A member of the RNA family "Alphaproteobacteria transfer-messenger RNA" from Paracoccus onubensis, 356 nucleotides long.
Bacterial tmRNA, also known as 10Sa RNA or SsrA, is named for its dual tRNA and mRNA-like properties. Its role is to liberate the mRNA from a stalled ribosome. To accomplish this part of the tmRNA is used as a reading frame that ends in a translation stop signal. The broken mRNA is replaced in the ribosome by the tmRNA and translation of the tmRNA leads to addition of a proteolysis tag to the incomplete protein enabling recognition by a protease. Recently a number of permuted tmRNA genes have been found encoded in two parts. tmRNAs have been identified in eubacteria and some chloroplasts but are absent from archaeal and eukaryote nuclear genomes.
Lineage of the source: Bacteria > Pseudomonadati > Pseudomonadota > Paracoccaceae > Paracoccus.
A search with the family's covariance model found it, with a score of 286 bits.
RNA sequence: GGCCUUGCGGCGGCCUGUGCGAGUCUCUAUAUUCAUCCUGUUCGGUUUCGGCCGGGCUAUGGACAUAAACGCGCUCGUAAUAAGCGGAUCGGACCCGGGGGCGGUACCCGGCGGCUCCACCAUAUAACCCUUCAUUGGGGGCAUUUGGGGCCGAAACAGGAUCGACGAACGUCUAAAGGGGUUUGCUUUGUCCCGGUGAGCGACCACCGUUAUCGGUGCAUAAUGUACAGUUGCCAAUGACAACCGUGCUCCGGUGGCCGUUGCUGCGUAAGCAGUAACCAAACCGAAACCUUAAGCCCUGACGCCUAGCAGCUUCAGGCGGGGCCCGCAGGAGCCUGGCAACAGAAUCCUGCACC
Numbered sequence: 001g002g003c004c005u006u007g008c009g010g011c012g013g014c015c016u017g018u019g020c021g022a023g024u025c026u027c028u029a030u031a032u033u034c035a036u037c038c039u040g041u042u043c044g045g046u047u048u049c050g051g052c053c054g055g056g057c058u059a060u061g062g063a064c065a066u067a068a069a070c071g072c073g074c075u076c077g078u079a080a081u082a083a084g085c086g087g088a089u090c091g092g093a094c095c096c097g098g099g100g101g102c103g104g105u106a107c108c109c110g111g112c113g114g115c116u117c118c119a120c121c122a123u124a125u126a127a128c129c130c131u132u133c134a135u136u137g138g139g140g141g142c143a144u145u146u147g148g149g150g151c152c153g154a155a156a157c158a159g160g161a162u163c164g165a166c167g168a169a170c171g172u173c174u175a176a177a178g179g180g181g182u183u184u185g186c187u188u189u190g191u192c193c194c195g196g197u198g199a200g201c202g203a204c205c206a207c208c209g210u211u212a213u214c215g216g217u218g219c220a221u222a223a224u225g226u227a228c229a230g231u232u233g234c235c236a237a238u239g240a241c242a243a244c245c246g247u248g249c250u251c252c253g254g255u256g257g258c259c260g261u262u263g264c265u266g267c268g269u270a271a272g273c274a275g276u277a278a279c280c281a282a283a284c285c286g287a288a289a290c291c292u293u294a295a296g297c298c299c300u301g302a303c304g305c306c307u308a309g310c311a312g313c314u315u316c317a318g319g320c321g322g323g324g325c326c327c328g329c330a331g332g333a334g335c336c337u338g339g340c341a342a343c344a345g346a347a348u349c350c351u352g353c354a355c356c
Base pairs, nucleotide, nucleotide: 040057041056042055043054044053045052046051061193062192063191064190065189071186072185073182074181075180076179085171086170089168090167091166095111096110097109098108099107112153113152114151115150116149117148118147194209195208196207197206200219201218203217204216205215322337323336324335325334328353329352330351331350332349333348